[Rfam]
RNA sequence: CUGGGAUGAUGUUACUUAGCCAAAUCAGAUAUUGAUGUGCUCCAUAAGGCAUUGUCUUCAAAGCUUGUACUUGGUAUUGUAGAGGCACACUGGGUCUCUUAUAUACUCUUGAUCAAGCAUUUGACAAGAUGCCUUCUGUCGAAGCAUAUUGCUGUGACGUCAAAAUAGGGAUUGGUUGUUCCUGACCAGA
Numbered sequence: 001c002u003g004g005g006a007u008g009a010u011g012u013u014a015c016u017u018a019g020c021c022a023a024a025u026c027a028g029a030u031a032u033u034g035a036u037g038u039g040c041u042c043c044a045u046a047a048g049g050c051a052u053u054g055u056c057u058u059c060a061a062a063g064c065u066u067g068u069a070c071u072u073g074g075u076a077u078u079g080u081a082g083a084g085g086c087a088c089a090c091u092g093g094g095u096c097u098c099u100u101a102u103a104u105a106c107u108c109u110u111g112a113u114c115a116a117g118c119a120u121u122u123g124a125c126a127a128g129a130u131g132c133c134u135u136c137u138g139u140c141g142a143a144g145c146a147u148a149u150u151g152c153u154g155u156g157a158c159g160u161c162a163a164a165a166u167a168g169g170g171a172u173u174g175g176u177u178g179u180u181c182c183u184g185a186c187c188a189g190a
Base pairs, nucleotide, nucleotide: 001189002188003187004186